[Rfam]
RNA: MIR397 microRNA precursor family
Organism: Gossypium laxum
Nucleotides: 085
Base pairs, nucleotide, nucleotide: 006082007081008080009079010078011077013075015073016072017071018070019069020068022066023065025063026062027061028060030058031057032056033055034054035053
Number, partner (000 for none) and nucleotide at each position: 001000a002000g003000a004000a005000g006082a007081a008080a009079c010078a011077u012000u013075g014000u015073u016072g017071a018070g019069u020068g021000c022066a023065g024000c025063g026062u027061u028060g029000a030058u031057g032056a033055g034054c035053u036000u037000u038000u039000u040000u041000u042000u043000g044000g045000u046000u047000u048000c049000g050000a051000u052000g053035a054034g055033u056032u057031c058030a059000u060028c061027a062026a063025c064000a065023c066022u067000u068020c069019a070018c071017u072016c073015a074000c075013u076000g077011a078010u079009g080008u081007u082006u083000u084000u085000u